The family of this 204-nucleotide RNA is "raiA RNA". The family's consensus secondary structure is taken from published work. It is one of the family's seed sequences.

RNA sequence: UUGAGUCGGGUCUGUGGUUGCAAGUCGAAGCCAGUCGCAGGCAAAACGAUCCACAUAAGCGGAACAAAGCUUCCGUGAGCAUGGUGCGGCUUAGAUGUAAGUCCUGUCGGGCGACCGAGAGGGGCAGUAGUGGGCAGCGUAAAGCUUAGUAGCGAACCCUCCAACAGGCGAGUGUGGGGGCAAAGACCAGGUCAGCCGAUCCGA
Numbered sequence: 001u002u003g004a005g006u007c008g009g010g011u012c013u014g015u016g017g018u019u020g021c022a023a024g025u026c027g028a029a030g031c032c033a034g035u036c037g038c039a040g041g042c043a044a045a046a047c048g049a050u051c052c053a054c055a056u057a058a059g060c061g062g063a064a065c066a067a068a069g070c071u072u073c074c075g076u077g078a079g080c081a082u083g084g085u086g087c088g089g090c091u092u093a094g095a096u097g098u099a100a101g102u103c104c105u106g107u108c109g110g111g112c113g114a115c116c117g118a119g120a121g122g123g124g125c126a127g128u129a130g131u132g133g134g135c136a137g138c139g140u141a142a143a144g145c146u147u148a149g150u151a152g153c154g155a156a157c158c159c160u161c162c163a164a165c166a167g168g169c170g171a172g173u174g175u176g177g178g179g180g181c182a183a184a185g186a187c188c189a190g191g192u193c194a195g196c197c198g199a200u201c202c203g204a
Base pairs, nucleotide, nucleotide: 001204002203003202005200006199007198008197009196012195013194014193015189016188017187018186019185028175030173031041033091034090035089036088037087038086039085050084051083058076061073062072063071082182103168104167105166106165107164108117109116110115121161122160123159124158130153131152136146137145138144